Rfam assigns this 72-nucleotide RNA sequence from Ophiophagus hannah to the family "mir-24 microRNA precursor family". About the family: This family represents the microRNA (miRNA) mir-24 family. miRNAs are transcribed as ~70nt precursors (modelled here) and subsequently processed by the Dicer enzyme to give a ~22nt product. In this case the mature sequence comes from the 3' arm of the precursor. The extents of the hairpin precursors are not generally known and are estimated based on hairpin prediction. The products are thought to have regulatory roles through complementarity to mRNA. The involvement of Dicer in miRNA processing suggests a relationship with the phenomenon of RNA interference. miRNAs are numbered based on the sequence of the mature RNA. miR-24 has been identified in human and mouse. Gene Ontology terms of the family: miRNA-mediated post-transcriptional gene silencing and RISC complex. The family's consensus secondary structure was predicted with RNAalifold.
RNA sequence: UCCUCCGGUGCCUACUGAGCUGAUAUCAGUUCUGAUUUUAUAUACUGGCUCAGUUCAGCAGGAACAGGAGUC
Numbered sequence: 001u002c003c004u005c006c007g008g009u010g011c012c013u014a015c016u017g018a019g020c021u022g023a024u025a026u027c028a029g030u031u032c033u034g035a036u037u038u039u040a041u042a043u044a045c046u047g048g049c050u051c052a053g054u055u056c057a058g059c060a061g062g063a064a065c066a067g068g069a070g071u072c
Base pairs, nucleotide, nucleotide: 003070004069005068006067008065009064011062012061013060015058016057017056018055019054020053021052022051023050026048027047028046029045030044
For this family Rfam cites "Identification of novel genes coding for small expressed RNAs" (Lagos-Quintana et al., Science, 2001).